[Rfam]
RNA sequence: GGGCAGUCAUCGCCGAAUCCCCGCAGGGCGUGAGCCCGGGGAACCGGGGACCCACCGUCCCAGGGGUGAAUCGGGCGCCUCCCGCGAGGGGCCCGUAGGAGACCUUCCUGCUCCGAACCCGUCAGCUAACCCGGUAGGCGAGAAGGAAGGAAAG
Numbered sequence: 001g002g003g004c005a006g007u008c009a010u011c012g013c014c015g016a017a018u019c020c021c022c023g024c025a026g027g028g029c030g031u032g033a034g035c036c037c038g039g040g041g042a043a044c045c046g047g048g049g050a051c052c053c054a055c056c057g058u059c060c061c062a063g064g065g066g067u068g069a070a071u072c073g074g075g076c077g078c079c080u081c082c083c084g085c086g087a088g089g090g091g092c093c094c095g096u097a098g099g100a101g102a103c104c105u106u107c108c109u110g111c112u113c114c115g116a117a118c119c120c121g122u123c124a125g126c127u128a129a130c131c132c133g134g135u136a137g138g139c140g141a142g143a144a145g146g147a148a149g150g151a152a153a154g
Stems, first nucleotide, its partner, number of pairs: 011140004018042006043135006053063001064120003072095004098114004
The record is a 154-nucleotide RNA sequence from Streptomyces sp. SID7982, which matches "c-di-AMP riboswitch aptamer (ydaO/yuaA leader)" in Rfam.